Rfam assigns this 71-nucleotide RNA from Caenorhabditis japonica to the family "mir-239 microRNA precursor family". For this family Rfam cites "Large-scale sequencing reveals 21U-RNAs and additional microRNAs and endogenous siRNAs in C. elegans" (Ruby et al., Cell, 2006). The base pairs follow the family's consensus structure, which was predicted with RNAalifold. Gene Ontology terms of the family: RISC complex and miRNA-mediated post-transcriptional gene silencing. Rfam 15.1 lists 54 matches to the family in 39 species. A search with the family's covariance model found it, with a score of 58 bits. The source organism's lineage runs through Eukaryota, Bilateria, Rhabditida, Rhabditoidea and Caenorhabditis.

RNA sequence: CAGUAUUUGUACUACACAUAGGUACUGGUGAAAACGUGUUUAACCAGUGCCUGGUCUAGUGCAAGCACUGC
Numbered sequence: 001c002a003g004u005a006u007u008u009g010u011a012c013u014a015c016a017c018a019u020a021g022g023u024a025c026u027g028g029u030g031a032a033a034a035c036g037u038g039u040u041u042a043a044c045c046a047g048u049g050c051c052u053g054g055u056c057u058a059g060u061g062c063a064a065g066c067a068c069u070g071c
Base pairs, nucleotide, nucleotide: 003068004067006065007064008063009062010061011060012059016055017054019053020052021051022050023049025047026046027045029042030041